This 85-nucleotide RNA sequence belongs to the Rfam family "chrB-a RNA". Rfam's curators put it in the seed alignment.

[Rfam]
RNA sequence: CCCAAGGGGUUCGACCGCAAUGGCCCCUCGAGGCCGCAGCCGAACGAUUGCGUCCAUGGUUCCCAUCCCGGGGAGGACGCCUAUG
Numbered sequence: 001c002c003c004a005a006g007g008g009g010u011u012c013g014a015c016c017g018c019a020a021u022g023g024c025c026c027c028u029c030g031a032g033g034c035c036g037c038a039g040c041c042g043a044a045c046g047a048u049u050g051c052g053u054c055c056a057u058g059g060u061u062c063c064c065a066u067c068c069c070g071g072g073g074a075g076g077a078c079g080c081c082u083a084u085g
Base pairs, nucleotide, nucleotide: 005028006027007026008025009024010023050080051079052078053077054076055075